[Rfam]
RNA: SAM riboswitch aptamer (S box leader)
RNA sequence: CUCUUAUCAAGAGCCGGUGGAGGGAACAUACCCGACGAAACCCAGCAACCUCUUUUCAACAAAGAAAGGUGCUAAAGGAUGCAGAAGUUAUUCUGAUCGAUAAGGG
Number, nucleotide and partner (000 for none) at each position: 001c106002u105003c104004u103005u102006a101007u100008c099009a000010a000011g000012a000013g043014c000015c000016g042017g041018u040019g000020g000021a000022g033023g032024g031025a000026a000027c081028a080029u079030a000031c024032c023033c022034g000035a000036c000037g000038a000039a000040a018041c017042c016043c013044a073045g072046c071047a070048a000049c069050c068051u065052c064053u063054u062055u000056u000057c000058a000059a000060c000061a000062a054063a053064g052065a051066a000067a000068g050069g049070u047071g046072c045073u044074a000075a000076a000077g098078g000079a029080u028081g027082c095083a094084g093085a092086a091087g000088u000089u000090a000091u086092u085093c084094u083095g082096a000097u000098c077099g008100a007101u006102a005103a004104g003105g002106g001